[Rfam]
RNA: Nuclear RNase P
RNA sequence: CCCGGGGGAAGCUCACCGCCGAGGCCACCCACGGGGUGUGCUGUCACCCCCGCCCCGCCUCAGGGAAGGUCUGAGGGAAGGGCCGCGUGGCGGCUCUCGCAGAGCCCCGCCCGCGAGGGGCGGGUGAGCCACCAGACAGGGGGGGCGCCGCGCGACUGGCCGGGACGGGCAGGAGAAACCGAGCCGGCUCCCGCCGCCGAGCCCCGGUGGAUGCUCGUGGCCCCGCGGUGCUUUGAGACAGACUCACGGCCGGCCGUGCUCGAGUCCAAUGGGUGAGGUGGGGCACGGCCCCACAACCCAAUUCAGACUACUCUCCCCCGGG
Numbered sequence: 001c002c003c004g005g006g007g008g009a010a011g012c013u014c015a016c017c018g019c020c021g022a023g024g025c026c027a028c029c030c031a032c033g034g035g036g037u038g039u040g041c042u043g044u045c046a047c048c049c050c051c052g053c054c055c056c057g058c059c060u061c062a063g064g065g066a067a068g069g070u071c072u073g074a075g076g077g078a079a080g081g082g083c084c085g086c087g088u089g090g091c092g093g094c095u096c097u098c099g100c101a102g103a104g105c106c107c108c109g110c111c112c113g114c115g116a117g118g119g120g121c122g123g124g125u126g127a128g129c130c131a132c133c134a135g136a137c138a139g140g141g142g143g144g145g146c147g148c149c150g151c152g153c154g155a156c157u158g159g160c161c162g163g164g165a166c167g168g169g170c171a172g173g174a175g176a177a178a179c180c181g182a183g184c185c186g187g188c189u190c191c192c193g194c195c196g197c198c199g200a201g202c203c204c205c206g207g208u209g210g211a212u213g214c215u216c217g218u219g220g221c222c223c224c225g226c227g228g229u230g231c232u233u234u235g236a237g238a239c240a241g242a243c244u245c246a247c248g249g250c251c252g253g254c255c256g257u258g259c260u261c262g263a264g265u266c267c268a269a270u271g272g273g274u275g276a277g278g279u280g281g282g283g284c285a286c287g288g289c290c291c292c293a294c295a296a297c298c299c300a301a302u303u304c305a306g307a308c309u310a311c312u313c314u315c316c317c318c319c320g321g322g
Base pairs, nucleotide, nucleotide: 001322002321003320004319007316008315009314012277013276014275015274016273017272021061022060023059024058034049035048036047037046038045071306072305073304074303075302081251082250083249084248092106093105094104095103096102107123108122109121110120111119112118124247125246126245127244128243130241144232145231146230147229148228149227150226151225152224278294279293280292281291282290283289284288